[Rfam]
The record is a 113-nucleotide RNA from Mesorhabditis belari, which matches "SL2 RNA" in Rfam.
It scores 70 bits against the family's covariance model.
Its family is annotated with mRNA trans splicing, via spliceosome in the Gene Ontology.
This family represents SL2 RNA. SL2 RNA is involved in trans splicing in lower eukaryotes. Trans-splicing is a form of RNA processing.
It is annotated as a non-coding RNA gene.
Taxonomically the source falls in Mesorhabditis (Eukaryota, Protostomia, Rhabditomorpha, Mesorhabditinae).
RNA sequence: GGUUAUAACCCAGUACAACAAGGUACGCUUGGGAUUCCGACCUGGAUGAAUAAUCCGGUGUUGGUAACCGAUUAUUUUUGGAAUAGUCCUCCUGGGGUAUCCGGGAGGACGCU
Numbered sequence: 001g002g003u004u005a006u007a008a009c010c011c012a013g014u015a016c017a018a019c020a021a022g023g024u025a026c027g028c029u030u031g032g033g034a035u036u037c038c039g040a041c042c043u044g045g046a047u048g049a050a051u052a053a054u055c056c057g058g059u060g061u062u063g064g065u066a067a068c069c070g071a072u073u074a075u076u077u078u079u080g081g082a083a084u085a086g087u088c089c090u091c092c093u094g095g096g097g098u099a100u101c102c103g104g105g106a107g108g109a110c111g112c113u
Stems, first nucleotide, its partner, number of pairs: 007036002009032002013028002017024001038063004042058005088111001090109004096102002